pan motif: a 91-nucleotide RNA from Shouchella clausii. Rfam's curators put it in the seed alignment. The source organism's lineage runs through Bacteria, Bacilli, Caryophanales, Shouchella and Shouchella clausii. By type it is a cis-regulatory element.
[Rfam]
RNA sequence: AGGGCUGUAUCUGCUAGAACGGCACCCAAAAGAGGUAUGGGAUUGUAACGUAACGAAAGCUUGCCUGGAUCUUUCGGAGACCGGGACAUAG
Dot-bracket structure: .(((((((.((.....))))))).))...................................(((((((.(((.....)))))))).))...
Numbered sequence: 001a002g003g004g005c006u007g008u009a010u011c012u013g014c015u016a017g018a019a020c021g022g023c024a025c026c027c028a029a030a031a032g033a034g035g036u037a038u039g040g041g042a043u044u045g046u047a048a049c050g051u052a053a054c055g056a057a058a059g060c061u062u063g064c065c066u067g068g069a070u071c072u073u074u075c076g077g078a079g080a081c082c083g084g085g086a087c088a089u090a091g
Stems, first nucleotide, its partner, number of pairs: 002026002004023005010018002062088002064085005070080003